This 102-nucleotide sequence from Pseudobacteroides cellulosolvens belongs to the Rfam family "azaaromatic riboswitch aptamer (yjdF RNA)".
The source organism's lineage runs through Bacteria, Bacillota, Clostridia, Oscillospiraceae and Pseudobacteroides cellulosolvens.
It scores 98 bits against the family's covariance model.
[Rfam]
RNA sequence: AUAUUAAGAGAUAAAAACACGAUCCGGUUGGUAGUCCGGAUGCAGGAGUAUUCCUGUCAGUAACCUGCCCUCCUGGGGUUGUCCCUUCUCUUUAUAAUCAAA
Numbered sequence: 001a002u003a004u005u006a007a008g009a010g011a012u013a014a015a016a017a018c019a020c021g022a023u024c025c026g027g028u029u030g031g032u033a034g035u036c037c038g039g040a041u042g043c044a045g046g047a048g049u050a051u052u053c054c055u056g057u058c059a060g061u062a063a064c065c066u067g068c069c070c071u072c073c074u075g076g077g078g079u080u081g082u083c084c085c086u087u088c089u090c091u092u093u094a095u096a097a098u099c100a101a102a
Stems, first nucleotide, its partner, number of pairs: 004094001006092006022041006042057006067079004